[Rfam]
RNA sequence: UUGCACAGUGAACACCCAAAUGUGCUUUAUAGUUCCCUUGGCUUUGACUCUGUGCUAGAGUCUGUACUUUUCCUUCACAUCGAAAGGACUGUCUAUCCUAUAAAUGUAUUCAGAAAGUAAGCAUAUUA
Numbered sequence: 001u002u003g004c005a006c007a008g009u010g011a012a013c014a015c016c017c018a019a020a021u022g023u024g025c026u027u028u029a030u031a032g033u034u035c036c037c038u039u040g041g042c043u044u045u046g047a048c049u050c051u052g053u054g055c056u057a058g059a060g061u062c063u064g065u066a067c068u069u070u071u072c073c074u075u076c077a078c079a080u081c082g083a084a085a086g087g088a089c090u091g092u093c094u095a096u097c098c099u100a101u102a103a104a105u106g107u108a109u110u111c112a113g114a115a116a117g118u119a120a121g122c123a124u125a126u127u128a
Base pairs, nucleotide, nucleotide: 003055004054005053006052007051008050010049013046014045016041017040018039019038022035024033025032026031057068058067074114075113078106079105080104082101085099086098087097088096
This 128-nucleotide RNA sequence from Pipistrellus kuhlii belongs to the Rfam family "Small nucleolar RNA SNORA22". Pairs were carried over by alignment from the consensus structure, which was predicted with RNAfold. The source organism's lineage runs through Eukaryota, Opisthokonta, Amniota, Vespertilionidae and Pipistrellus. A search with the family's covariance model found it, with a score of 101 bits. ACA22 is a member of the H/ACA class of snoRNA that guide the sites of modification of uridines to pseudouridines.